The family of this 81-nucleotide sequence from Sideroxydans sp. CL21 is "c-di-GMP-I riboswitch aptamer". It scores 64 bits against the family's covariance model. Pairs were carried over by alignment from the consensus structure, which is taken from published work.
RNA sequence: AACCUUGCUUGGCAAACGUACUGAAAAGUAUGGGCGCAAAGUCUCCGGCCUAAGGGUAACUAUGGUAGCGGGACUGCGACA
Numbered sequence: 001a002a003c004c005u006u007g008c009u010u011g012g013c014a015a016a017c018g019u020a021c022u023g024a025a026a027a028g029u030a031u032g033g034g035c036g037c038a039a040a041g042u043c044u045c046c047g048g049c050c051u052a053a054g055g056g057u058a059a060c061u062a063u064g065g066u067a068g069c070g071g072g073a074c075u076g077c078g079a080c081a
Stems, first nucleotide, its partner, number of pairs: 012037002017032006040075004045071003048066003055060001